RNA sequence: GAAUGUCUUCGGGGCAGGGUGAGGAGAGAUUGCCAUUUUCUAAGGAGAAGGCAACUCUGCAAUUCCCGACCGGCGGUUACAGUCCGCGACCCGUGUUCCACGGUGGAUCUGGUGAAACUCCAGGGCCGACAGUAUAGUCUGGAUGGGAGAAGACGAAA
Numbered sequence: 001g002a003a004u005g006u007c008u009u010c011g012g013g014g015c016a017g018g019g020u021g022a023g024g025a026g027a028g029a030u031u032g033c034c035a036u037u038u039u040c041u042a043a044g045g046a047g048a049a050g051g052c053a054a055c056u057c058u059g060c061a062a063u064u065c066c067c068g069a070c071c072g073g074c075g076g077u078u079a080c081a082g083u084c085c086g087c088g089a090c091c092c093g094u095g096u097u098c099c100a101c102g103g104u105g106g107a108u109c110u111g112g113u114g115a116a117a118c119u120c121c122a123g124g125g126c127c128g129a130c131a132g133u134a135u136a137g138u139c140u141g142g143a144u145g146g147g148a149g150a151a152g153a154c155g156a157a158a
Stems, first nucleotide, its partner, number of pairs: 004155007017067003069138002071128002073087004082126002091103002108124005130141003
RNA: FMN riboswitch aptamer (RFN element)
Organism: Ktedonobacter racemifer